Rfam assigns this 453-nucleotide part of an RNA from Caldicellulosiruptor saccharolyticus to the family "Bacterial large subunit ribosomal RNA". NCBI's taxonomy places the organism under Bacteria, Bacillota, Caldicellulosiruptorales, Caldicellulosiruptor, Caldicellulosiruptor saccharolyticus. Clan: LSU clan. Rfam 15.1 lists 51,934 matches to the family in 10,816 species.

RNA sequence: CUCCCCGAAAUAGCUUUAGGGCUAGCCUCAAGGUGUAGCCGCUGGAGGUAGAGCACUGACUGGGCUAGGGGCGCAAAAACGUUACCGAACCCUAUCAAACUCCGAAUGCUGGCGGUGGAACCUUGGGAGUCAGACCACGAGCGAUAAGGUCCGUGGUCGAGAGGGGAACAGCCCAGACCGACUGCUAAGGUCCCGAAGGUGUGGCUAAGUGUGGAAAGGAUGUUCAGUCGCGAAGACAACCAGGAGGUUGGCUUAGAAGCAGCCAUUCCUUUAAAGAGUGCGUAACAGCUCACUGGUCGAGCGGCUGGGCGCCGAAAAUACUCGGGGCUUCAAGCCACACACCGAAGCAUCGGGUUUAAAGCCGAGGUAAUCGGCUUUAAGCGGUAGGGGAGCGUUCUGCGGCAGGGAGAAGCCCAAGGCGAAAGCCAGGGUGGACGAGGCAGAAGUGAGAAU
Dot-bracket structure: ((((((....(((((....))))).((((((((..(.((((((((.....(((...(((..(((...((((((......)))).))...)))..)))..)).).....))))))))...)))))))).)...(((((((.((......)).)))))))....(((......)))...((((.(((...(((......(.((((((............((..((((((((((.......(((((.(((..(((.........)))...)))(...)(...((......)).).)))))...)))))))))).))....................))))))))))...)))))))((((((((((((.....))))))))))))....))))))(.((((((....(......((((..(((....))).))))...)...))))))..).....